Rfam assigns this 74-nucleotide RNA sequence from Telmatospirillum siberiense to the family "Makes More Granules Regulator RNA (mmgR)". NCBI's taxonomy places the organism under Bacteria, Pseudomonadati, Pseudomonadota, Rhodospirillales, Telmatospirillum. On this family, see Lagares et al., Mol Phylogenet Evol 2016: "Phylogenetic distribution and evolutionary pattern of an alpha-proteobacterial small RNA gene that controls polyhydroxybutyrate accumulation in Sinorhizobium meliloti". It scores 68 bits against the family's covariance model. Gene Ontology terms of the family: protein binding, response to nitrogen compound and DNA-templated transcription, termination. The base pairs follow the family's consensus structure.
[Rfam]
RNA sequence: UCCUGUCGCCUUUCUUGGACGUUUCCUCCCUAAACUUGGGCCCUGGGUAACCAGGGCCCCUUUUCUUUUCCGCA
Numbered sequence: 001u002c003c004u005g006u007c008g009c010c011u012u013u014c015u016u017g018g019a020c021g022u023u024u025c026c027u028c029c030c031u032a033a034a035c036u037u038g039g040g041c042c043c044u045g046g047g048u049a050a051c052c053a054g055g056g057c058c059c060c061u062u063u064u065c066u067u068u069u070c071c072g073c074a
Stems, first nucleotide, its partner, number of pairs: 008020001010018002038059009
SuhB later renamed mmgR (makes more granules regulator) was a putative non-coding RNA found multiple times in the Agrobacterium tumefaciens genome and related alpha-proteobacteria. Other non-coding RNAs uncovered in the same analysis include: speF, ybhL, metA, and serC.Several studies inSinorhizobium meliloti showed that suhB element is indeed a non-coding RNA:firstly it was detected on Northern blot and called Sm8RNA, secondly in an RNAseq study referred to as SmelC689.The mutant phenotype's (strain lacking the small RNA) cytoplasm contains higher content of polyhydroxybutyrate (PBH)storage granules than wild type strain.